[Rfam]
Rfam assigns this 76-nucleotide sequence from Firmicutes bacterium CAG:56 to the family "Fluoride riboswitch aptamer (crcB RNA motif)". The literature on the family includes a 2017 paper in Nat Chem Biol by Zhao et al., "An excited state underlies gene regulation of a transcriptional riboswitch".
RNA sequence: AUGACUGCCGGGAAUGAGGUUCUCCCUGGUUUUUAACCAAACCGCUUGUAUAUAAGCUGAUGACUUCUGCGAUUUC
Numbered sequence: 001a002u003g004a005c006u007g008c009c010g011g012g013a014a015u016g017a018g019g020u021u022c023u024c025c026c027u028g029g030u031u032u033u034u035a036a037c038c039a040a041a042c043c044g045c046u047u048g049u050a051u052a053u054a055a056g057c058u059g060a061u062g063a064c065u066u067c068u069g070c071g072a073u074u075u076c
Stems, first nucleotide, its partner, number of pairs: 010026004016067006044057004
Dot-bracket structure: .........[[[[..((((((.]]]].................((((......))))....)))))).........